[Rfam]
RNA sequence: GCCGGGACGACCCGGUCUUCGGACAACAGAUGGGGACGGCCCCA
Number, nucleotide and partner (000 for none) at each position: 001g016002c015003c014004g013005g012006g011007a000008c000009g000010a000011c006012c005013c004014g003015g002016u001017c000018u000019u000020c000021g000022g000023a000024c000025a000026a000027c000028a000029g000030a000031u044032g043033g042034g041035g040036a000037c000038g000039g000040c035041c034042c033043c032044a031